[Rfam]
RNA sequence: UGCUUCGGCGGCGUCGGCGCUCCUUUUCAAGGAACACAAGAGAGAAAGAACUCCUACCAAGCCCCACCCCUCCCGCCUGCCGGUGUGCCCCAUCACUCUCCCGAGUGAACAUCGCCAACUCGGCUGGAUUCGUGCCCGGUUGCCUGGCCUACGCUCAGCGCAGCACCACCACCGACAUCACAGACAACCGCAGACAACCUCAGACAUGCGACGGCCCCCGCCGGGACUGCAAUCCCAAGGCGAGGGCCUGACCACCAAGGAAGAAGCAAGCUUCCCG
Number, nucleotide and partner (000 for none) at each position: 001u000002g000003c000004u000005u000006c000007g256008g255009c000010g253011g000012c000013g000014u000015c000016g077017g076018c075019g074020c000021u000022c000023c000024u000025u000026u000027u000028c000029a000030a000031g000032g000033a000034a000035c000036a000037c000038a000039a000040g000041a000042g000043a000044g000045a000046a000047a000048g000049a000050a000051c000052u000053c000054c000055u000056a000057c000058c000059a000060a000061g000062c000063c000064c000065c000066a000067c000068c000069c000070c000071u000072c000073c000074c019075g018076c017077c016078u000079g000080c000081c000082g000083g000084u000085g000086u000087g000088c000089c000090c000091c000092a000093u108094c107095a106096c105097u104098c103099u000100c000101c000102c000103g098104a097105g096106u095107g094108a093109a000110c000111a000112u000113c000114g000115c000116c000117a000118a000119c000120u000121c000122g000123g159124c158125u157126g156127g155128a000129u000130u000131c000132g000133u000134g000135c000136c000137c000138g000139g000140u000141u000142g000143c000144c000145u000146g000147g000148c000149c000150u000151a000152c000153g000154c000155u127156c126157a125158g124159c123160g000161c000162a000163g000164c000165a000166c000167c000168a000169c000170c000171a000172c000173c000174g000175a000176c000177a000178u000179c000180a000181c000182a000183g000184a000185c000186a000187a000188c000189c000190g000191c000192a000193g000194a000195c000196a000197a000198c000199c000200u000201c000202a000203g000204a000205c000206a000207u000208g000209c000210g000211a000212c000213g248214g247215c246216c245217c244218c000219c242220g241221c240222c000223g236224g235225g234226a233227c000228u000229g000230c000231a000232a000233u226234c225235c224236c223237a000238a000239g000240g221241c220242g219243a000244g217245g216246g215247c214248c213249u000250g000251a000252c000253c010254a000255c008256c007257a000258a000259g275260g274261a273262a272263g271264a000265a000266g000267c000268a000269a000270g000271c263272u262273u261274c260275c259276c000277g000

The record is a 277-nucleotide RNA from Streptomyces turgidiscabies, which matches "Streptomyces sRNA 4677" in Rfam. The pairing is the family consensus, mapped onto this sequence. Lineage of the source: Bacteria > Actinomycetes > Streptomycetaceae > Streptomyces > Streptomyces turgidiscabies. Rfam describes the family as follows. Located in the intergenic region between anti-sigma factor SCO4677 gene and a putative regulatory protein gene SCO4676. scr4677 expression requires the SCO4677 activity and scr4677 sRNA itself seem to affect the levels of the SCO4676-associated transcripts. Rfam 15.1 lists 563 matches to the family in 285 species.